A member of the RNA family "MIR812 microRNA precursor family" from Oryza sativa, 202 nucleotides long.
Lineage of the source: Eukaryota > Tracheophyta > Euphyllophyta > Spermatophyta > Oryza sativa.
The base pairs follow the family's consensus structure, which was predicted with RNAalifold.
The match comes from Rfam's covariance-model search (130 bits).

[Rfam]
RNA sequence: UUUAAAUACAGCAUGGUUUUCCACAUCCAACUUUGAUCGUCUGUCUUAUUUAAUUUUUUUAAAAAAAUUUAAAAACAUAAGUCAUGAGUAAAGUACUAUUCAUGUUUUAUGAUCUCAUAACAACAAAAAUAUUAAUUAUAAAAAGUUUUUAAAUAAAACCGACGAUCAAAGUUGGACGCGAAAAUUCAUGGUUGCACUUAAA
Numbered sequence: 001u002u003u004a005a006a007u008a009c010a011g012c013a014u015g016g017u018u019u020u021c022c023a024c025a026u027c028c029a030a031c032u033u034u035g036a037u038c039g040u041c042u043g044u045c046u047u048a049u050u051u052a053a054u055u056u057u058u059u060u061a062a063a064a065a066a067a068u069u070u071a072a073a074a075a076c077a078u079a080a081g082u083c084a085u086g087a088g089u090a091a092a093g094u095a096c097u098a099u100u101c102a103u104g105u106u107u108u109a110u111g112a113u114c115u116c117a118u119a120a121c122a123a124c125a126a127a128a129a130u131a132u133u134a135a136u137u138a139u140a141a142a143a144a145g146u147u148u149u150u151a152a153a154u155a156a157a158a159c160c161g162a163c164g165a166u167c168a169a170a171g172u173u174g175g176a177c178g179c180g181a182a183a184a185u186u187c188a189u190g191g192u193u194g195c196a197c198u199u200a201a202a
Stems, first nucleotide, its partner, number of pairs: 026176016043159002046156004